The family of this 101-nucleotide sequence from Durio zibethinus is "MIR397 microRNA precursor family". Rfam 15.1 lists 496 matches to the family in 218 species. A search with the family's covariance model found it, with a score of 65 bits.
RNA sequence: GGAAGAAACAUCAUUGAGUGCAGCGUUGAUGAAUUCUUUCAGUUUAUGGCUUAUGCGCCUUGCUGGAUGAAUUCGCCAACCUGCACUCAAUCAUGUUUUUU
Numbered sequence: 001g002g003a004a005g006a007a008a009c010a011u012c013a014u015u016g017a018g019u020g021c022a023g024c025g026u027u028g029a030u031g032a033a034u035u036c037u038u039u040c041a042g043u044u045u046a047u048g049g050c051u052u053a054u055g056c057g058c059c060u061u062g063c064u065g066g067a068u069g070a071a072u073u074c075g076c077c078a079a080c081c082u083g084c085a086c087u088c089a090a091u092c093a094u095g096u097u098u099u100u101u
Stems, first nucleotide, its partner, number of pairs: 006098006013091011025080004030075007